RNA: ROOL RNA
RNA sequence: UAUAUGAUAUAAUGUACUUUGUAACCAGUUGGAAACCCAUCUAACAAAUGGGGCUGGACACGCUGAAUAGUGGCACACGUUUCGAAGGGAUACCUUUGAAGACGUAAUAGAUGUUCCGUAGAAAAGUAAUUUUCUUGGUAAGAAUGUAGAUAAAGACGCAUUCAAAACAUGGCGUGGUGCAAUAGAAUAAGUGGAAGUUAAGUGACUAUGCGAAAUCGGGAUCACAAUAGACGGUCCGUGGGACAGGAAUCCAUUAUUGCAAUGUGUGGUAGCAUUGCUUCUGAUGGAAAAACCAAUAAGAUCUUAGUUCGGUUGAUGGGAGAAAUUCCUAUAAGAGAAAGCAUAGGUACAAGUAGAGGAAACCCGACAUUAUAAAUAAUUCUAUUAUAAUUGGUAUAAAGACUAUUAUUACUUCUGAAAGUUCUCGAAAGUUGUGAGUAAAAUCCCACUUGGGUUUAUGGAAACAGACUAAAGAAGGUUAGAAUUAGCUAUUCUAUCCUCAGACUUUAGCCCCCAAUGCAUGAAUGACAGCUUAUUCUACUUGUAAGGUGAAGACCUACAUUUUUAAGACACCCAAA
Numbered sequence: 001u002a003u004a005u006g007a008u009a010u011a012a013u014g015u016a017c018u019u020u021g022u023a024a025c026c027a028g029u030u031g032g033a034a035a036c037c038c039a040u041c042u043a044a045c046a047a048a049u050g051g052g053g054c055u056g057g058a059c060a061c062g063c064u065g066a067a068u069a070g071u072g073g074c075a076c077a078c079g080u081u082u083c084g085a086a087g088g089g090a091u092a093c094c095u096u097u098g099a100a101g102a103c104g105u106a107a108u109a110g111a112u113g114u115u116c117c118g119u120a121g122a123a124a125a126g127u128a129a130u131u132u133u134c135u136u137g138g139u140a141a142g143a144a145u146g147u148a149g150a151u152a153a154a155g156a157c158g159c160a161u162u163c164a165a166a167a168c169a170u171g172g173c174g175u176g177g178u179g180c181a182a183u184a185g186a187a188u189a190a191g192u193g194g195a196a197g198u199u200a201a202g203u204g205a206c207u208a209u210g211c212g213a214a215a216u217c218g219g220g221a222u223c224a225c226a227a228u229a230g231a232c233g234g235u236c237c238g239u240g241g242g243a244c245a246g247g248a249a250u251c252c253a254u255u256a257u258u259g260c261a262a263u264g265u266g267u268g269g270u271a272g273c274a275u276u277g278c279u280u281c282u283g284a285u286g287g288a289a290a291a292a293c294c295a296a297u298a299a300g301a302u303c304u305u306a307g308u309u310c311g312g313u314u315g316a317u318g319g320g321a322g323a324a325a326u327u328c329c330u331a332u333a334a335g336a337g338a339a340a341g342c343a344u345a346g347g348u349a350c351a352a353g354u355a356g357a358g359g360a361a362a363c364c365c366g367a368c369a370u371u372a373u374a375a376a377u378a379a380u381u382c383u384a385u386u387a388u389a390a391u392u393g394g395u396a397u398a399a400a401g402a403c404u405a406u407u408a409u410u411a412c413u414u415c416u417g418a419a420a421g422u423u424c425u426c427g428a429a430a431g432u433u434g435u436g437a438g439u440a441a442a443a444u445c446c447c448a449c450u451u452g453g454g455u456u457u458a459u460g461g462a463a464a465c466a467g468a469c470u471a472a473a474g475a476a477g478g479u480u481a482g483a484a485u486u487a488g489c490u491a492u493u494c495u496a497u498c499c500u501c502a503g504a505c506u507u508u509a510g511c512c513c514c515c516a517a518u519g520c521a522u523g524a525a526u527g528a529c530a531g532c533u534u535a536u537u538c539u540a541c542u543u544g545u546a547a548g549g550u551g552a553a554g555a556c557c558u559a560c561a562u563u564u565u566u567a568a569g570a571c572a573c574c575c576a577a578a
Stems, first nucleotide, its partner, number of pairs: 010572001013569001015567002025057005036052005059176006073114003077108001080101009116138002120135006142163005190543002194539001196534002199531001206346006216336002218305006234244004250288006259278007267295004309367004318329004350431001356426005414504004434520001438446001451516003454465001467513001470510001472508003477500002480496006547558004
Dot-bracket structure: .........(..(.((........(((((......(((((.......)))))))))).((((((........(((.(..(((((((((....)))))))))......)...))).((..((((((....)))))).))...(((((............))))).......)))))).............((..(.((.(......((((((....((((((((..........((((...)))).....((((((...(((((((.[[[[.)))))))....))))))...]]]]....))))))...[[[[.....((((....)))).....))....))))))...(.....(((((...]]]]..............................................[[[[....)))))....)..(...(.......)....((((..........).(..(.(((..((.((((((.....))))))..))]]]].))).)..))))...)..........).))....)..))...((((....)))).......)).)..)......